RNA sequence: GGUUGGUGAUGUCAUGGCAUGUGUGAGUUGAAUCCAAAGUUGAGGUCAGUACUACAAUGCUACUAAAAUCUU
Numbered sequence: 001g002g003u004u005g006g007u008g009a010u011g012u013c014a015u016g017g018c019a020u021g022u023g024u025g026a027g028u029u030g031a032a033u034c035c036a037a038a039g040u041u042g043a044g045g046u047c048a049g050u051a052c053u054a055c056a057a058u059g060c061u062a063c064u065a066a067a068a069u070c071u072u
Stems, first nucleotide, its partner, number of pairs: 001070004
Dot-bracket structure: ((((..............................................................))))..
The family of this 72-nucleotide RNA sequence from Suricata suricatta is "Small nucleolar RNA SNORD45". The base pairs follow the family's consensus structure, which was predicted with PFOLD.